[Rfam]
A. fumigatus sRNA Afu_309: a 333-nucleotide RNA from Ceratocystis platani. The literature on the family includes a 2008 paper in Nucleic Acids Res by Jochl et al., "Small ncRNA transcriptome analysis from Aspergillus fumigatus suggests a novel mechanism for regulation of protein synthesis". The match comes from Rfam's covariance-model search (104 bits).
RNA sequence: UCCUCUUUCACUACCAAGGACCUGUGCCCUGCGAUCCCCUGGCUGCAAUUUGCGGCUUCAGGGUUGAACGCAGACGGCAGCUCGAUCGUUCUAUGGAGCCACACAUACUUCGGUGGUGUUAUCCGAUCGACAGUUCCCAUAUCAAGUCAGCUAGAUUGGCCAUACCCGAGUUCUUCGCUUGUACCUUGCACAUGCUCGCUCUUCACACGGGCUGAGCGGUGUGAGGGAGACGGCUCGGGGAGACCAAUCUUGUGCUGUUGCCGCUAUAUUCCACCCCUUUUUUCUGAGGUCAUUGAUCAGUGAAGUUGAGGAUACCCAUAGUUGGCUACAUUU
Numbered sequence: 001u002c003c004u005c006u007u008u009c010a011c012u013a014c015c016a017a018g019g020a021c022c023u024g025u026g027c028c029c030u031g032c033g034a035u036c037c038c039c040u041g042g043c044u045g046c047a048a049u050u051u052g053c054g055g056c057u058u059c060a061g062g063g064u065u066g067a068a069c070g071c072a073g074a075c076g077g078c079a080g081c082u083c084g085a086u087c088g089u090u091c092u093a094u095g096g097a098g099c100c101a102c103a104c105a106u107a108c109u110u111c112g113g114u115g116g117u118g119u120u121a122u123c124c125g126a127u128c129g130a131c132a133g134u135u136c137c138c139a140u141a142u143c144a145a146g147u148c149a150g151c152u153a154g155a156u157u158g159g160c161c162a163u164a165c166c167c168g169a170g171u172u173c174u175u176c177g178c179u180u181g182u183a184c185c186u187u188g189c190a191c192a193u194g195c196u197c198g199c200u201c202u203u204c205a206c207a208c209g210g211g212c213u214g215a216g217c218g219g220u221g222u223g224a225g226g227g228a229g230a231c232g233g234c235u236c237g238g239g240g241a242g243a244c245c246a247a248u249c250u251u252g253u254g255c256u257g258u259u260g261c262c263g264c265u266a267u268a269u270u271c272c273a274c275c276c277c278u279u280u281u282u283u284c285u286g287a288g289g290u291c292a293u294u295g296a297u298c299a300g301u302g303a304a305g306u307u308g309a310g311g312a313u314a315c316c317c318a319u320a321g322u323u324g325g326c327u328a329c330a331u332u333u
Stems, first nucleotide, its partner, number of pairs: 018137003022133004026078003029073003033069001035067002037063005042057001044054004087129002090126002094121003098117003150253001154249006167237004173233001260326003263322005276311002279309002284305002288298004
The base pairs follow the family's consensus structure, which was predicted with WAR.